A member of the RNA family "Small nucleolar RNA SNORD24" from Hansenula ciferrii, 88 nucleotides long.
On this family, see Qu et al., Nucleic Acids Res 1995: "U24, a novel intron-encoded small nucleolar RNA with two 12 nt long, phylogenetically conserved complementarities to 28S rRNA".

RNA sequence: AUUAGAUGAUGUUACAUAUAUUUGCUACUUCGGACGAGGCUAUCUACCUCGAAUGAGACAUAUUUUAAUCACCAAGAUCUCUGAUAAU
Numbered sequence: 001a002u003u004a005g006a007u008g009a010u011g012u013u014a015c016a017u018a019u020a021u022u023u024g025c026u027a028c029u030u031c032g033g034a035c036g037a038g039g040c041u042a043u044c045u046a047c048c049u050c051g052a053a054u055g056a057g058a059c060a061u062a063u064u065u066u067a068a069u070c071a072c073c074a075a076g077a078u079c080u081c082u083g084a085u086a087a088u
Stems, first nucleotide, its partner, number of pairs: 001088004